[Rfam]
RNA sequence: AUCAAUAUUUCCGAAACUGAAGCACCAACUUGUAUUCUGAGAGCAGUAGGUGCUAUUAGUUGGGGUAAUGUUG
Dot-bracket structure: ...(.((((((....(((((((((((.(((..............))).)))))).))))).)))))).)....

miR-430 microRNA precursor family: a 73-nucleotide sequence from Echeneis naucrates. The family is grouped with related families in Rfam's "mir-290 clan". On this family, see Giraldez et al., Science 2005: "MicroRNAs regulate brain morphogenesis in zebrafish". The family's consensus secondary structure was predicted with RNAalifold.